[Rfam]
RNA sequence: GUGGGCUACGGAGACAUGUAUCCCUCCACCAUCGGGGGGAAAUUCGUUGGUUCCCUUUGCGCAAUCGCCGGAGUGCUGACCAUAGCGCUACCUGUUCCCGUCAUCGUGUCGAAU
Numbered sequence: 001g002u003g004g005g006c007u008a009c010g011g012a013g014a015c016a017u018g019u020a021u022c023c024c025u026c027c028a029c030c031a032u033c034g035g036g037g038g039g040a041a042a043u044u045c046g047u048u049g050g051u052u053c054c055c056u057u058u059g060c061g062c063a064a065u066c067g068c069c070g071g072a073g074u075g076c077u078g079a080c081c082a083u084a085g086c087g088c089u090a091c092c093u094g095u096u097c098c099c100g101u102c103a104u105c106g107u108g109u110c111g112a113a114u
Stems, first nucleotide, its partner, number of pairs: 001114002005110001007108005013102003018097001020095002037077002040074001050062002
Description
This 114-nucleotide RNA from Poecilia reticulata belongs to the Rfam family "Potassium channel RNA editing signal". For this family Rfam cites "Control of human potassium channel inactivation by editing of a small mRNA hairpin" (Bhalla et al., Nat Struct Mol Biol, 2004). Rfam links the family to the GO term adenosine to inosine editing. The family has 85 seed sequences and 14,095 matches in Rfam 15.1. It is annotated as a cis-regulatory element. From the family's description: This family represents a group of sequences related to the human potassium channel Kv1.1 hairpin element which directs the efficient modification of an adenosine to inosine by an adenosine deaminase acting on RNA (ADAR). The organism belongs to Poecilia, within Eukaryota.